[Rfam]
Nucleotides: 131
Stems, first nucleotide, its partner, number of pairs: 003060001005058004014048003018044004024038004072125002074122004080116001082115002086111003090107001091105004
Number, partner (000 for none) and nucleotide at each position: 001000u002000u003060a004000g005058c006057a007056c008055u009000u010000u011000u012000c013000a014048c015047a016046g017000g018044u019043c020042c021041u022000c023000c024038c025037c026036c027035c028000a029000g030000g031000c032000a033000g034000u035027g036026g037025g038024g039000c040000u041021a042020g043019g044018a045000u046016u047015u048014g049000g050000u051000a052000g053000c054000u055008g056007g057006u058005g059000a060003u061000g062000a063000a064000a065000a066000a067000a068000a069000a070000a071000a072125c073124c074122u075121u076120g077119a078000u079000u080116g081000c082115a083114u084000u085000c086111u087110u088109g089000c090107u091105c092104u093103g094102g095000g096000a097000c098000u099000g100000u101000g102094c103093c104092a105091g106000u107090g108000a109088c110087a111086g112000c113000u114083g115082u116080c117000c118000c119077u120076c121075a122074g123000u124073g125072g126000c127000c128000a129000g130000a131000a
The family of this 131-nucleotide RNA from Molossus molossus is "Small nucleolar RNA SNORA30/SNORA37 family". For this family Rfam cites "RNomics: an experimental approach that identifies 201 candidates for novel, small, non-messenger RNAs in mouse" (Huttenhofer et al., EMBO J, 2001). Rfam links the family to the GO terms RNA processing and nucleolus. The family has 11 seed sequences and 407 matches in Rfam 15.1. About the family: The members of this family belong to the H/ACA class of snoRNAs that guide the sites of modification of uridines to pseudouridines.